[Rfam]
RNA sequence: GGGAGGUGUGAUACCAUGCUUCCUGGGAGGUGUGAUCCCACGCUCACUGGGAGGUGUGAUCUCACACUCGCU
Numbered sequence: 001g002g003g004a005g006g007u008g009u010g011a012u013a014c015c016a017u018g019c020u021u022c023c024u025g026g027g028a029g030g031u032g033u034g035a036u037c038c039c040a041c042g043c044u045c046a047c048u049g050g051g052a053g054g055u056g057u058g059a060u061c062u063c064a065c066a067c068u069c070g071c072u
Stems, first nucleotide, its partner, number of pairs: 001071001003069003015058004020053007029044001031042004

Description:
Shown here is a 72-nucleotide sequence from Homo sapiens, a member of the family "mir-3689 microRNA precursor family". The family has 7 seed sequences and 117 matches in Rfam 15.1. Lineage of the source: Eukaryota > Amniota > Euarchontoglires > Haplorrhini > Homo. Gene Ontology terms of the family: RISC complex and miRNA-mediated post-transcriptional gene silencing. Pairs were carried over by alignment from the consensus structure, which was predicted with RNAalifold.